[Rfam]
RNA sequence: GCAAUGGAUCGCUAGGGUUCCGGUCUUCGGGAGAAGACGUCUGGUCCGAGAGCGGUCGACCUUCGCAGAAGGUUACACGGCGGGAGAAAAGCCCGGGAGGU
Numbered sequence: 001g002c003a004a005u006g007g008a009u010c011g012c013u014a015g016g017g018u019u020c021c022g023g024u025c026u027u028c029g030g031g032a033g034a035a036g037a038c039g040u041c042u043g044g045u046c047c048g049a050g051a052g053c054g055g056u057c058g059a060c061c062u063u064c065g066c067a068g069a070a071g072g073u074u075a076c077a078c079g080g081c082g083g084g085a086g087a088a089a090a091g092c093c094c095g096g097g098a099g100g101u
Base pairs, nucleotide, nucleotide: 007057008056009055010054011053012052015047016046020044021043022041023038024037025036026035027034028033058074059073060072061071062070063069064068076096078099082094083093084092